[Rfam]
RNA sequence: CCCUAGCCCUGAUGGUAACGGCAUCCUCUUGUGGUGGGGUUCGCCACAAGAGAUAUAGUGGACAGCAGGAUUAAGC
Numbered sequence: 001c002c003c004u005a006g007c008c009c010u011g012a013u014g015g016u017a018a019c020g021g022c023a024u025c026c027u028c029u030u031g032u033g034g035u036g037g038g039g040u041u042c043g044c045c046a047c048a049a050g051a052g053a054u055a056u057a058g059u060g061g062a063c064a065g066c067a068g069g070a071u072u073a074a075g076c
Stems, first nucleotide, its partner, number of pairs: 009068003013064002018059002023054003028050008
Overview
The family of this 76-nucleotide RNA from Flavobacterium alvei is "Flavo-1 RNA". Rfam 15.1 lists 7,497 matches to the family in 411 species. The family's consensus secondary structure is taken from published work. NCBI's taxonomy places the organism under Bacteria, Pseudomonadati, Bacteroidota, Flavobacteriaceae, Flavobacterium.